RNA sequence: UGACAGCGGUGAGGCGGAAGGUUGCUCAAGUGCCCAUGGCCAUAUGGGGCACCAAUGAGGGAAUUUCUGCGGAGCAUGUCCAAUCCAGUGGGCGACGA
Numbered sequence: 001u002g003a004c005a006g007c008g009g010u011g012a013g014g015c016g017g018a019a020g021g022u023u024g025c026u027c028a029a030g031u032g033c034c035c036a037u038g039g040c041c042a043u044a045u046g047g048g049g050c051a052c053c054a055a056u057g058a059g060g061g062a063a064u065u066u067c068u069g070c071g072g073a074g075c076a077u078g079u080c081c082a083a084u085c086c087a088g089u090g091g092g093c094g095a096c097g098a
Stems, first nucleotide, its partner, number of pairs: 014070003019066003025059004077097004084092003